[Rfam]
RNA sequence: AGUAUUCUGUAUCCGUGCUGAGAUUUCGUCACACACCAGACCACAAGGGCUGAUGAGACACUUAAUAUAAAUGAAGCA
Numbered sequence: 001a002g003u004a005u006u007c008u009g010u011a012u013c014c015g016u017g018c019u020g021a022g023a024u025u026u027c028g029u030c031a032c033a034c035a036c037c038a039g040a041c042c043a044c045a046a047g048g049g050c051u052g053a054u055g056a057g058a059c060a061c062u063u064a065a066u067a068u069a070a071a072u073g074a075a076g077c078a
Stems, first nucleotide, its partner, number of pairs: 002077002005074002008071001010069003016064002020061001022059001024058007

A member of the RNA family "mir-3492 microRNA precursor family" from Schistosoma haematobium, 78 nucleotides long. Its family is annotated with RISC complex and miRNA-mediated post-transcriptional gene silencing in the Gene Ontology. Pairs were carried over by alignment from the consensus structure, which was predicted with RNAalifold.